[Rfam]
RNA sequence: ACAGAGUGAUGACCUAUGAAUUGACAGCCAGUUUAAAACUGCCUGCCUGUCAGUUCUGUAGGCCACUGCCCUGU
Number, nucleotide and partner (000 for none) at each position: 001a074002c073003a072004g071005a000006g069007u068008g067009a000010u065011g064012a000013c062014c061015u060016a059017u000018g056019a055020a054021u053022u052023g051024a050025c049026a048027g047028c000029c045030a044031g043032u000033u000034u000035a000036a000037a000038a000039c000040u000041g000042c000043c031044u030045g029046c000047c027048u026049g025050u024051c023052a022053g021054u020055u019056c018057u000058g000059u016060a015061g014062g013063c000064c011065a010066c000067u008068g007069c006070c000071c004072u003073g002074u001
RNA: mir-192/215 microRNA precursor family